[Rfam]
RNA sequence: UCAGCUGCAGUGGGAGAGGCCGAGCUACGCGCCGGCCGCCGACGGAGCAAACCCUCCCCAGGACACUCUCAGGCACCCGAACCGCCGCAGCGAG
Numbered sequence: 001u002c003a004g005c006u007g008c009a010g011u012g013g014g015a016g017a018g019g020c021c022g023a024g025c026u027a028c029g030c031g032c033c034g035g036c037c038g039c040c041g042a043c044g045g046a047g048c049a050a051a052c053c054c055u056c057c058c059c060a061g062g063a064c065a066c067u068c069u070c071a072g073g074c075a076c077c078c079g080a081a082c083c084g085c086c087g088c089a090g091c092g093a094g
Base pairs, nucleotide, nucleotide: 006089007088008087010085011084012083013082019036020035021034022033038074039073040072041070042069045068046067047066
Dot-bracket structure: .....(((.((((.....((((..........)))).(((((..(((..................))))).))).......)))).))).....